Eukaryotic large subunit ribosomal RNA: a 595-nucleotide part of an RNA from Dimargaris verticillata. The organism belongs to Dimargaris, within Eukaryota. It scores 2613 bits against the family's covariance model.
[Rfam]
RNA sequence: UCGCCUCAUCUAAAGUGAGACAACCCGCUGGAUUUAAGCAUAUUAAUAAGCGGAGGAAAAGAAAUUAACAAAGAUUCCCCCAGUAGCGGCGAGCGAAGCGGGAAGAGCCCAGAUUUAAAAGGCGCGGUGCCUGUGCGCCGAGAGCCGUUGUAGUCUGGAGAUGGGCGCGUGGGGGGCGCGGGCGCAGAGCAAAGUGCCCUGGAACGGGCCGGCACAGAGGGUGACACCCCCGUAGCACAGCGACCGCACCCCCGCCAUCGCGCGCAUCGACGAGUCGGGUUGUUUGGGAAUGCAACCCUAAGACGGGUGGUAGAAUUCAUCCAAGGCUAAAUAUGCGUAAGAGACCGAUAGCGGACAAGUACCGUGAGGGAACGUUGAAAAGCACUCUGAAGAGAGGGUGAAAAGGACGUGAAAUUGAGUGGGGUCAAGGGAGAGCGGGGCUGAUAUCGCAGAUUGACGGGGCGCGCUGGUGUGCGUGCGCGAGACGGGACGGGCAGGUCUGGGGGGCGCCUUGCUGCUUCGGCGGCGCUGCGCCUUCCCACCGCCGGUCCUCUGCGCGCGCGGCCCGCGUGCCCUCGACAGCGUCGUUCCCCAA
Number, nucleotide and partner (000 for none) at each position: 001u000002c000003g000004c000005c000006u000007c000008a000009u000010c000011u000012a000013a000014a000015g000016u000017g000018a000019g000020a000021c000022a000023a000024c055025c053026c052027g051028c050029u049030g000031g000032a000033u000034u000035u042036a041037a000038g000039c000040a000041u036042a035043u000044u000045a000046a000047u000048a000049a029050g028051c027052g026053g025054a000055g024056g000057a000058a000059a000060a000061g000062a000063a000064a000065u072066u071067a000068a000069c000070a000071a066072a065073g000074a000075u000076u103077c102078c101079c100080c000081c000082a000083g000084u000085a000086g094087c093088g000089g000090c000091g000092a000093g087094c086095g000096a000097a000098g000099c000100g079101g078102g077103a076104a000105g000106a328107g327108c326109c325110c000111a000112g155113a154114u153115u152116u000117a000118a149119a148120a000121g146122g145123c142124g000125c140126g139127g138128u000129g000130c000131c000132u000133g000134u000135g000136c000137g000138c127139c126140g125141a000142g123143a000144g000145c122146c121147g000148u119149u118150g000151u000152a115153g114154u113155c112156u000157g000158g000159a000160g268161a267162u266163g265164g000165g263166c262167g261168c260169g259170u000171g253172g252173g251174g250175g249176g247177c246178g000179c000180g000181g000182g000183c242184g241185c240186a000187g238188a000189g236190c000191a000192a000193a000194g210195u000196g209197c208198c207199c206200u000201g000202g000203a000204a000205c000206g199207g198208g197209c196210c194211g000212g000213c217214a000215c000216a000217g213218a000219g000220g230221g229222u000223g000224a000225c000226a000227c000228c000229c221230c220231c000232g000233u000234a000235g000236c189237a000238c187239a000240g185241c184242g183243a000244c000245c000246g177247c176248a000249c175250c174251c173252c172253c171254g000255c000256c000257a000258u000259c169260g168261c167262g166263c165264g000265c163266a162267u161268c160269g000270a000271c000272g000273a000274g000275u000276c000277g298278g297279g296280u295281u294282g293283u292284u000285u000286g000287g000288g000289a000290a000291u000292g283293c282294a281295a280296c279297c278298c277299u000300a000301a000302g000303a000304c000305g322306g321307g320308u319309g318310g000311u000312a000313g000314a000315a000316u000317u000318c309319a308320u307321c306322c305323a000324a000325g109326g108327c107328u106329a000330a000331a000332u000333a000334u000335g000336c000337g000338u000339a000340a000341g000342a000343g000344a000345c000346c000347g000348a000349u000350a000351g000352c000353g000354g000355a000356c000357a000358a000359g000360u000361a000362c369363c368364g000365u000366g000367a000368g363369g362370g000371a000372a000373c000374g000375u000376u000377g000378a000379a000380a000381a000382g000383c000384a000385c396386u395387c394388u393389g000390a000391a000392g000393a388394g387395a386396g385397g000398g000399u000400g000401a000402a000403a000404a000405g000406g000407a000408c000409g000410u000411g000412a000413a000414a000415u000416u000417g000418a000419g000420u000421g000422g000423g000424g000425u000426c000427a000428a000429g000430g593431g592432a000433g590434a589435g588436c587437g586438g585439g000440g583441c582442u581443g580444a000445u000446a000447u000448c000449g000450c000451a000452g000453a000454u000455u000456g000457a000458c000459g000460g000461g000462g000463c000464g000465c000466g000467c000468u000469g000470g000471u000472g000473u000474g000475c000476g000477u000478g000479c000480g000481c000482g000483a000484g000485a000486c000487g000488g000489g000490a000491c000492g000493g000494g000495c000496a000497g000498g000499u000500c000501u000502g000503g000504g000505g000506g000507g000508c000509g000510c000511c000512u000513u000514g000515c000516u000517g000518c000519u000520u000521c000522g000523g000524c000525g000526g000527c000528g000529c000530u000531g000532c000533g000534c000535c000536u000537u000538c000539c000540c000541a000542c000543c000544g000545c000546c000547g000548g000549u000550c000551c000552u000553c000554u000555g000556c000557g000558c000559g000560c000561g000562c000563g000564g000565c000566c000567c000568g000569c000570g000571u000572g000573c000574c000575c000576u000577c000578g000579a000580c443581a442582g441583c440584g000585u438586c437587g436588u435589u434590c433591c000592c431593c430594a000595a000